[Rfam]
RNA sequence: UGCUGUGAUGGUGUAAUUUGCGUCUGAACUUGUGAACAGUUGCCUGCUGUCUCUAAGCUGUCUUAGAGUAUAGAUGUGUGUUAAAUUCUGAGCA
Numbered sequence: 001u002g003c004u005g006u007g008a009u010g011g012u013g014u015a016a017u018u019u020g021c022g023u024c025u026g027a028a029c030u031u032g033u034g035a036a037c038a039g040u041u042g043c044c045u046g047c048u049g050u051c052u053c054u055a056a057g058c059u060g061u062c063u064u065a066g067a068g069u070a071u072a073g074a075u076g077u078g079u080g081u082u083a084a085a086u087u088c089u090g091a092g093c094a
Base pairs, nucleotide, nucleotide: 001094002093003092021076022075023074024073030066031065032058033057034051036050037049038048039047
RNA: Small nucleolar RNA SNORD16